[Rfam]
Shown here is an 82-nucleotide RNA from Perkinsus chesapeaki, a member of the family "tRNA".
RNA sequence: GAGUGUUUGCCCGAGUGGUUAAGGGGGUGGACUUAAGAUCCACUGGACAAUGUCCGCGUGGGUUCGAACCCCACAGCACUUA
Numbered sequence: 001g002a003g004u005g006u007u008u009g010c011c012c013g014a015g016u017g018g019u020u021a022a023g024g025g026g027g028u029g030g031a032c033u034u035a036a037g038a039u040c041c042a043c044u045g046g047a048c049a050a051u052g053u054c055c056g057c058g059u060g061g062g063u064u065c066g067a068a069c070c071c072c073a074c075a076g077c078a079c080u081u082a
Base pairs, nucleotide, nucleotide: 001081002080003079004078005077006076007075010025011024012023027043028042029041030040031039058074059073060072061071062070
About this RNA:
Lineage of the source: Eukaryota > Alveolata > Perkinsea > Perkinsidae > Perkinsus. The family's consensus secondary structure is taken from published work.